[Rfam]
RNA: Lysine riboswitch aptamer
Organism: Clostridium magnum
RNA sequence: AUAUGAUAUAGAGGUUGCAGUUGUCAUUAGUACUCUUUAGGAAAGGGUCAACUGCCGAAAUGCAUGAGAUAGAUCAUGUGUUGGGAUUAUACUGAAUAAGUAUGGUACUGUCUUCAGAAAAUUGCCCAAUUUUCUAAAGGAGUGCUUAUCAUAU
Numbered sequence: 001a002u003a004u005g006a007u008a009u010a011g012a013g014g015u016u017g018c019a020g021u022u023g024u025c026a027u028u029a030g031u032a033c034u035c036u037u038u039a040g041g042a043a044a045g046g047g048u049c050a051a052c053u054g055c056c057g058a059a060a061u062g063c064a065u066g067a068g069a070u071a072g073a074u075c076a077u078g079u080g081u082u083g084g085g086a087u088u089a090u091a092c093u094g095a096a097u098a099a100g101u102a103u104g105g106u107a108c109u110g111u112c113u114u115c116a117g118a119a120a121a122u123u124g125c126c127c128a129a130u131u132u133u134c135u136a137a138a139g140g141a142g143u144g145c146u147u148a149u150c151a152u153a154u
Base pairs, nucleotide, nucleotide: 005150006149007148008147010146011145017055018054019053020052021051022050023049025047033040034039059082060081061080062079063078064077065076066075067074083109084108086106087105088104089103090102091101092100093099111140112139113138114137116135117134118133119132120131121130